This 103-nucleotide sequence from Planococcus rifietoensis belongs to the Rfam family "SAM riboswitch aptamer (S box leader)". The source organism's lineage runs through Bacteria, Bacillati, Caryophanales, Caryophanaceae and Planococcus. It scores 70 bits against the family's covariance model.

[Rfam]
RNA sequence: AUCUUAUCGAGAUUGACUGAGGGACUGGCCCUGAGACGUCAAAGCAGCAGACCGCAAUGCGGCACUGUGCUAAUUCCUUGUACCGCGCGUACAGAGAUAAGAG
Numbered sequence: 001a002u003c004u005u006a007u008c009g010a011g012a013u014u015g016a017c018u019g020a021g022g023g024a025c026u027g028g029c030c031c032u033g034a035g036a037c038g039u040c041a042a043a044g045c046a047g048c049a050g051a052c053c054g055c056a057a058u059g060c061g062g063c064a065c066u067g068u069g070c071u072a073a074u075u076c077c078u079u080g081u082a083c084c085g086c087g088c089g090u091a092c093a094g095a096g097a098u099a100a101g102a103g
Stems, first nucleotide, its partner, number of pairs: 002102007013042005021031003027077002043071004048067002050063001052061001075095001080092004